[Rfam]
RNA sequence: UGUAGCUACAGCUCUUUUAGUAUUUGUUUAACAGGGUUUUCUGCCUUUGUAGAAGACCCUU
Numbered sequence: 001u002g003u004a005g006c007u008a009c010a011g012c013u014c015u016u017u018u019a020g021u022a023u024u025u026g027u028u029u030a031a032c033a034g035g036g037u038u039u040u041c042u043g044c045c046u047u048u049g050u051a052g053a054a055g056a057c058c059c060u061u
Base pairs, nucleotide, nucleotide: 034059035058036057037056038055039054040053041052042051043050044049